[Rfam]
RNA: Small nucleolar RNA U54
Organism: Zizania palustris
RNA sequence: GGCUCAGUGAUUAUUACCAAUCAAUUUGGUCAUAUACGCUAUUCUGAUUUCUAUUGGUGAAAAAACAAAAUUAUGAGAGCU
Numbered sequence: 001g002g003c004u005c006a007g008u009g010a011u012u013a014u015u016a017c018c019a020a021u022c023a024a025u026u027u028g029g030u031c032a033u034a035u036a037c038g039c040u041a042u043u044c045u046g047a048u049u050u051c052u053a054u055u056g057g058u059g060a061a062a063a064a065a066c067a068a069a070a071u072u073a074u075g076a077g078a079g080c081u
Stems, first nucleotide, its partner, number of pairs: 001081005